[Rfam]
RNA sequence: AAUCAUACUAUCAAUAAAUGGAUUCACCCGUGAUAUAACGUGGUUGUUCCACUUAGGACAAGAACGUGGCAUCCUAUUACAAGCCAUUGCACAAAAUCAAAGGAUGCCACGUCCUCAUCAUAGGUGGAACAACCACGUCAUCUCACAGGUGAAUCCAUUCAUUGAUAGUGUGGUU
Numbered sequence: 001a002a003u004c005a006u007a008c009u010a011u012c013a014a015u016a017a018a019u020g021g022a023u024u025c026a027c028c029c030g031u032g033a034u035a036u037a038a039c040g041u042g043g044u045u046g047u048u049c050c051a052c053u054u055a056g057g058a059c060a061a062g063a064a065c066g067u068g069g070c071a072u073c074c075u076a077u078u079a080c081a082a083g084c085c086a087u088u089g090c091a092c093a094a095a096a097u098c099a100a101a102g103g104a105u106g107c108c109a110c111g112u113c114c115u116c117a118u119c120a121u122a123g124g125u126g127g128a129a130c131a132a133c134c135a136c137g138u139c140a141u142c143u144c145a146c147a148g149g150u151g152a153a154u155c156c157a158u159u160c161a162u163u164g165a166u167a168g169u170g171u172g173g174u175u
Stems, first nucleotide, its partner, number of pairs: 001175007009167007017159003021155008030146004035141002038138002041135008051125002054122002057119002064112002069107007077100002086097002
RNA: MIR807 microRNA precursor family